RNA sequence: GCGUGGGUCGGCCCGCUGUACUGGAUCCAGUGGGCUGGGGGACACCGCCGCCUUCAUCCCCGCGGGCGGCGGAGCGGUCCGGGAGGCGGCGUCCGUCUCCCGGACCGGC
Numbered sequence: 001g002c003g004u005g006g007g008u009c010g011g012c013c014c015g016c017u018g019u020a021c022u023g024g025a026u027c028c029a030g031u032g033g034g035c036u037g038g039g040g041g042a043c044a045c046c047g048c049c050g051c052c053u054u055c056a057u058c059c060c061c062g063c064g065g066g067c068g069g070c071g072g073a074g075c076g077g078u079c080c081g082g083g084a085g086g087c088g089g090c091g092u093c094c095g096u097c098u099c100c101c102g103g104a105c106c107g108g109c
Stems, first nucleotide, its partner, number of pairs: 002107001006075001008073001009037010038043001045072009055062001076106013
The record is a 109-nucleotide RNA from Streptomyces sp. Amel2xC10, which matches "Streptomyces RNA 4115" in Rfam. A search with the family's covariance model found it, with a score of 102 bits. The family's RNA type in Rfam is small RNA. The base pairs follow the family's consensus structure. From the family's description: Identified by deep sequencing of transcriptome at the end of exponential growth phase. Sequencing size consistent with notrthern blot size.